[Rfam]
RNA: HTH-XRE RNA
RNA sequence: GAUCAGCAUCGCUGGGGAAUGGAAUACCAUUCAUCGGAACUCCCGGCACAAGGCUUGCAAAGGUGAUUUCCCUUUC
Numbered sequence: 001g002a003u004c005a006g007c008a009u010c011g012c013u014g015g016g017g018a019a020u021g022g023a024a025u026a027c028c029a030u031u032c033a034u035c036g037g038a039a040c041u042c043c044c045g046g047c048a049c050a051a052g053g054c055u056u057g058c059a060a061a062g063g064u065g066a067u068u069u070c071c072c073u074u075u076c
Stems, first nucleotide, its partner, number of pairs: 011047006017032006